[Rfam]
RNA: MIR397 microRNA precursor family
Organism: Papaver somniferum
RNA sequence: UCAAAAGACAUAAUUGAAUGAAGCGCUGGUGAAAUCACACCAAAUCACUAGGAAAGAACUCCAAGAUCUGGAAUUUCAUCAACGCUGCACUCAAUGAUGUUUUUU
Dot-bracket structure: .....((((((.(((((.((.((((.((.(((...........................................))).)).)))).)).))))).))))))...